[Rfam]
RNA sequence: CUGAGGGUGGAGUAAUUCACUCUGAGCGCUGUACAGAAGUCAGCAGAAGGCAUAGUAGUCUAGGAAGUCACGCCAAAGCGUGAUUGGAAACGAGCCGUGAGAAGCGGAGGACUCACCCGACGAAGGCC
Numbered sequence: 001c002u003g004a005g006g007g008u009g010g011a012g013u014a015a016u017u018c019a020c021u022c023u024g025a026g027c028g029c030u031g032u033a034c035a036g037a038a039g040u041c042a043g044c045a046g047a048a049g050g051c052a053u054a055g056u057a058g059u060c061u062a063g064g065a066a067g068u069c070a071c072g073c074c075a076a077a078g079c080g081u082g083a084u085u086g087g088a089a090a091c092g093a094g095c096c097g098u099g100a101g102a103a104g105c106g107g108a109g110g111a112c113u114c115a116c117c118c119g120a121c122g123a124a125g126g127c128c
Stems, first nucleotide, its partner, number of pairs: 001026002004023008040047002049128003058121003064117001
Source information:
The family of this 128-nucleotide RNA from Desulfosarcina ovata is "Group II catalytic intron D1-D4-1". Pairs were carried over by alignment from the consensus structure.